[Rfam]
RNA sequence: ACCUCUAAGGAGCGUUGCGAGGUGUUUGGCAAAGCCAAACGCCCUAGGCUUAGAGGGAGGCAAAUGCCUUUAGCAACGACGCUCGCUAACC
Numbered sequence: 001a002c003c004u005c006u007a008a009g010g011a012g013c014g015u016u017g018c019g020a021g022g023u024g025u026u027u028g029g030c031a032a033a034g035c036c037a038a039a040c041g042c043c044c045u046a047g048g049c050u051u052a053g054a055g056g057g058a059g060g061c062a063a064a065u066g067c068c069u070u071u072a073g074c075a076a077c078g079a080c081g082c083u084c085g086c087u088a089a090c091c
Stems, first nucleotide, its partner, number of pairs: 002056007021043009